[Rfam]
The family of this 72-nucleotide RNA from Capra hircus is "Small nucleolar RNA SNORD113/SNORD114 family". The literature on the family includes a 2002 paper in Hum Mol Genet by Cavaille et al., "Identification of tandemly-repeated C/D snoRNA genes at the imprinted human 14q32 domain reminiscent of those at the Prader-Willi/Angelman syndrome region".
RNA sequence: UGAAUCAAUGAUAACUACUGGUGGGGUAUGAGUUGUGUCUGACAAAUACAAGUCUAGAACUCUGAGGUCUAA
Numbered sequence: 001u002g003a004a005u006c007a008a009u010g011a012u013a014a015c016u017a018c019u020g021g022u023g024g025g026g027u028a029u030g031a032g033u034u035g036u037g038u039c040u041g042a043c044a045a046a047u048a049c050a051a052g053u054c055u056a057g058a059a060c061u062c063u064g065a066g067g068u069c070u071a072a
Base pairs, nucleotide, nucleotide: 002070004068005067006066
Its family is annotated with nucleolus and RNA processing in the Gene Ontology. The imprinted human domain at 14q32 contains two clusters of tandemly repeated small nucleolar RNAs named 14q(I) and 14q(II) snoRNAs. These two clusters are named SNORD113 and SNORD114 respectively in the HGNC approved gene symbol nomenclature. NCBI's taxonomy places the organism under Eukaryota, Eumetazoa, Gnathostomata, Amniota, Capra. The base pairs follow the family's consensus structure, which is taken from published work.